RNA sequence: GUUGAGGGGAAUGUUGGCUGGCUCGAUGCGCGGUUACUCAUCAUCUAAACCACUUCACUAUUCAUCAAAUCUUUUCUCUCUCAAAAAUUUUGCUAUAAUGGUAGAGAAUAUAGAUAUACACCUUAUGUAUGUCUAUGUCUAUAUGAUUUGGUGAUGAUGAAUGAUGAUGAUGAUGAUGGAGUGAUGGCAUCGGACCAGGCUUCAUUCCUCUCAAU
Numbered sequence: 001g002u003u004g005a006g007g008g009g010a011a012u013g014u015u016g017g018c019u020g021g022c023u024c025g026a027u028g029c030g031c032g033g034u035u036a037c038u039c040a041u042c043a044u045c046u047a048a049a050c051c052a053c054u055u056c057a058c059u060a061u062u063c064a065u066c067a068a069a070u071c072u073u074u075u076c077u078c079u080c081u082c083a084a085a086a087a088u089u090u091u092g093c094u095a096u097a098a099u100g101g102u103a104g105a106g107a108a109u110a111u112a113g114a115u116a117u118a119c120a121c122c123u124u125a126u127g128u129a130u131g132u133c134u135a136u137g138u139c140u141a142u143a144u145g146a147u148u149u150g151g152u153g154a155u156g157a158u159g160a161a162u163g164a165u166g167a168u169g170a171u172g173a174u175g176a177u178g179g180a181g182u183g184a185u186g187g188c189a190u191c192g193g194a195c196c197a198g199g200c201u202u203c204a205u206u207c208c209u210c211u212c213a214a215u
Base pairs, nucleotide, nucleotide: 001215002214003213004212005211006210007209008208009207010206011205012204013203016200018198019197020196021195024192025191026190027189028188029187
RNA: mir-166 microRNA precursor family